Notes:
Rfam assigns this 105-nucleotide RNA from Litchfieldia salsa to the family "TPP riboswitch aptamer (THI element)". Taxonomically the source falls in Litchfieldia (Bacteria, Bacilli, Caryophanales, Bacillaceae).
RNA sequence: AAAGAGCACUAGGGGAGUCAAAAGAUGACUGAGAUGAAUAAUUGAUUCAGACCCUUUGAACCUGAUCUGAGUAAUAUCAGCGUAGGGAAGUGGCGUUUCAUUAGU
Numbered sequence: 001a002a003a004g005a006g007c008a009c010u011a012g013g014g015g016a017g018u019c020a021a022a023a024g025a026u027g028a029c030u031g032a033g034a035u036g037a038a039u040a041a042u043u044g045a046u047u048c049a050g051a052c053c054c055u056u057u058g059a060a061c062c063u064g065a066u067c068u069g070a071g072u073a074a075u076a077u078c079a080g081c082g083u084a085g086g087g088a089a090g091u092g093g094c095g096u097u098u099c100a101u102u103a104g105u
Stems, first nucleotide, its partner, number of pairs: 007092004011055004017029004036048004061086004067080004